[Rfam]
The family of this 111-nucleotide RNA from Leminorella richardii is "Alpha operon ribosome binding site". The family's consensus secondary structure is taken from published work. NCBI's taxonomy places the organism under Bacteria, Pseudomonadota, Gammaproteobacteria, Enterobacterales, Leminorella. By type it is a cis-regulatory element. A search with the family's covariance model found it, with a score of 106 bits. Its family is annotated with ribosome binding in the Gene Ontology. From the family's description: The bacterial alpha operon ribosome binding site is surrounded by this complex pseudoknotted structure. Translation of the mRNA produces 4 ribosomal protein products, one of which (S4) acts as a translational repressor by binding to the nested pseudoknot region.

RNA sequence: UAACCGCGGCACUAUUUGAGUAUCCUGAAAACGGGCUUUUCAGAGUAGUGCUGCGAUAUUUAAUUGUAGGAGUGCAUAGUGGCCCGUAUAGCAGGCAUUAACAUUCCUGAU
Dot-bracket structure: ....(((((((((..........[[[.....[[[[....{{{....)))))))))...........................]]]]......]]]............}}}.